[Rfam]
RNA sequence: AACACAACUCAAUAACGCACUCAUAUAAUGACGAGAAUAUGGCUCGUAAGUUUCUACCAAACCACCGUAAAUGGUUUGACUAUGAGUGAGCGGUGACACUUU
Numbered sequence: 001a002a003c004a005c006a007a008c009u010c011a012a013u014a015a016c017g018c019a020c021u022c023a024u025a026u027a028a029u030g031a032c033g034a035g036a037a038u039a040u041g042g043c044u045c046g047u048a049a050g051u052u053u054c055u056a057c058c059a060a061a062c063c064a065c066c067g068u069a070a071a072u073g074g075u076u077u078g079a080c081u082a083u084g085a086g087u088g089a090g091c092g093g094u095g096a097c098a099c100u101u102u
Stems, first nucleotide, its partner, number of pairs: 018088008029049001031047005058078007
The record is a 102-nucleotide sequence from Priestia veravalensis, which matches "Purine riboswitch aptamer" in Rfam. Pairs were carried over by alignment from the consensus structure, which is taken from published work. Rfam links the family to the GO term purine nucleobase biosynthetic process.